Nucleotides: 049
Base pairs, nucleotide, nucleotide: 004031005030006029007028008027009026010025013022014021015048016047017046019045020044
Number, partner (000 for none) and nucleotide at each position: 001000c002000c003000g004031c005030u006029g007028c008027u009026c010025c011000a012000a013022c014021g015048g016047c017046u018000u019045c020044c021014u022013g023000a024000c025010g026009g027008a028007g029006u030005g031004g032000c033000u034000u035000g036000a037000c038000c039000u040000g041000a042000u043000c044020g045019g046017a047016g048015c049000a
A member of the RNA family "SAM/SAH riboswitch aptamer" from Pseudooceanicola nitratireducens, 49 nucleotides long. On this family, see Weickhmann et al., Nucleic Acids Res 2019: "The structure of the SAM/SAH-binding riboswitch". The base pairs follow the family's consensus structure, which is taken from published work. Taxonomically the source falls in Pseudooceanicola (Bacteria, Pseudomonadati, Alphaproteobacteria, Rhodobacterales).